[Rfam]
Overview:
The family of this 85-nucleotide RNA from Deinococcus peraridilitoris is "c-di-GMP-II-GAG riboswitch aptamer". Pairs were carried over by alignment from the consensus structure, which is taken from published work. On this family, see Weinberg et al., Proc Natl Acad Sci U S A 2017: "Bioinformatic analysis of riboswitch structures uncovers variant classes with altered ligand specificity". Gene Ontology terms of the family: regulation of gene expression and cyclic-di-GMP binding.
RNA sequence: AACAUAACGGGAAGCGAUGAAGCCUGCUCAGCAUACGGUCACCAAUGCGCAGGGGGAGCCAAUGGUGAGACCGGCCCGCGAGGAG
Numbered sequence: 001a002a003c004a005u006a007a008c009g010g011g012a013a014g015c016g017a018u019g020a021a022g023c024c025u026g027c028u029c030a031g032c033a034u035a036c037g038g039u040c041a042c043c044a045a046u047g048c049g050c051a052g053g054g055g056g057a058g059c060c061a062a063u064g065g066u067g068a069g070a071c072c073g074g075c076c077c078g079c080g081a082g083g084a085g
Stems, first nucleotide, its partner, number of pairs: 003083001005081001008078004014059002023053005029047001037072002039068005